[Rfam]
RNA sequence: CGCUCUCAGUGUUCAUGGCGGAUCUUGAUUUAAUGUGGUACAAUUAAGGCACACGGUGAAUGCUAAGGGAG
Numbered sequence: 001c002g003c004u005c006u007c008a009g010u011g012u013u014c015a016u017g018g019c020g021g022a023u024c025u026u027g028a029u030u031u032a033a034u035g036u037g038g039u040a041c042a043a044u045u046a047a048g049g050c051a052c053a054c055g056g057u058g059a060a061u062g063c064u065a066a067g068g069g070a071g
Base pairs, nucleotide, nucleotide: 003069004068005067006066009063010062011061012060013059014058015057016056018054020052023049024048025047026046027045028044029043030042

The record is a 71-nucleotide RNA from Callorhinchus milii, which matches "mir-124 microRNA precursor family" in Rfam. The family has 122 seed sequences and 2,215 matches in Rfam 15.1. The family's consensus secondary structure was predicted with PFOLD.